[Rfam]
RNA sequence: UUGGCCACCUGGCUCUGAGAACUGAAUUCCAUAGGCUGUGAGCUCUAGUGAAUGCCCUAGGGACUCAGUUCUGGUGCCUGGCUGUGCCAC
Numbered sequence: 001u002u003g004g005c006c007a008c009c010u011g012g013c014u015c016u017g018a019g020a021a022c023u024g025a026a027u028u029c030c031a032u033a034g035g036c037u038g039u040g041a042g043c044u045c046u047a048g049u050g051a052a053u054g055c056c057c058u059a060g061g062g063a064c065u066c067a068g069u070u071c072u073g074g075u076g077c078c079u080g081g082c083u084g085u086g087c088c089a090c
Stems, first nucleotide, its partner, number of pairs: 008081002011078003018072008034056003